[Rfam]
RNA sequence: AUGCGAGUGUUCUCACUGUCCUGAUGCUGCUGUGCUCAGGGGAGGCUAGGCAUUCGCUAGAGAAAAACUGCAUGGUGUCCUCCAGGACUAGAUCGUUGCUCUAGUACUGGUUUUGUAAGUGCUAGUGACAGGU
Numbered sequence: 001a002u003g004c005g006a007g008u009g010u011u012c013u014c015a016c017u018g019u020c021c022u023g024a025u026g027c028u029g030c031u032g033u034g035c036u037c038a039g040g041g042g043a044g045g046c047u048a049g050g051c052a053u054u055c056g057c058u059a060g061a062g063a064a065a066a067a068c069u070g071c072a073u074g075g076u077g078u079c080c081u082c083c084a085g086g087a088c089u090a091g092a093u094c095g096u097u098g099c100u101c102u103a104g105u106a107c108u109g110g111u112u113u114u115g116u117a118a119g120u121g122c123u124a125g126u127g128a129c130a131g132g133u
Stems, first nucleotide, its partner, number of pairs: 003057003016044002019041006067126003070122002082110004087105005
RNA: Small nucleolar RNA SNORA72
Organism: Smithornis capensis